[Rfam]
RNA: Small nucleolar RNA SNORA73 family
Organism: Cavia porcellus
RNA sequence: UCAACAUGGAUACCCCGGGAGAUCACUCUCCCAGGACUCUGUCCAGGUGGCAUAGGGGAGCAUAGUGUUCUUCCCUAUGAUGUACAGUCUCUUUCCACAGCACUGGAGAAGAAGCUGGCCCUUGUGUCUGCACCUGCAUAUGCCUACAACUUCUCAGAGUUCUUUGGGCACUGACUGAGGAGAUAAACCAUGCAGGAAACAAUG
Numbered sequence: 001u002c003a004a005c006a007u008g009g010a011u012a013c014c015c016c017g018g019g020a021g022a023u024c025a026c027u028c029u030c031c032c033a034g035g036a037c038u039c040u041g042u043c044c045a046g047g048u049g050g051c052a053u054a055g056g057g058g059a060g061c062a063u064a065g066u067g068u069u070c071u072u073c074c075c076u077a078u079g080a081u082g083u084a085c086a087g088u089c090u091c092u093u094u095c096c097a098c099a100g101c102a103c104u105g106g107a108g109a110a111g112a113a114g115c116u117g118g119c120c121c122u123u124g125u126g127u128c129u130g131c132a133c134c135u136g137c138a139u140a141u142g143c144c145u146a147c148a149a150c151u152u153c154u155c156a157g158a159g160u161u162c163u164u165u166g167g168g169c170a171c172u173g174a175c176u177g178a179g180g181a182g183a184u185a186a187a188c189c190a191u192g193c194a195g196g197a198a199a200c201a202a203u204g
Stems, first nucleotide, its partner, number of pairs: 001106003007100001008044005015035002018029004047098004056091004060085001062083003065078002133196007150182006159169004
Dot-bracket structure: (((...((((((..((.((((....))))....))....)))))..((((.....(((((.(((((..........))..))).)..))))...)))).)...)))..........................(((((((..........((((((...((((...)))).......)))))).......)))))))........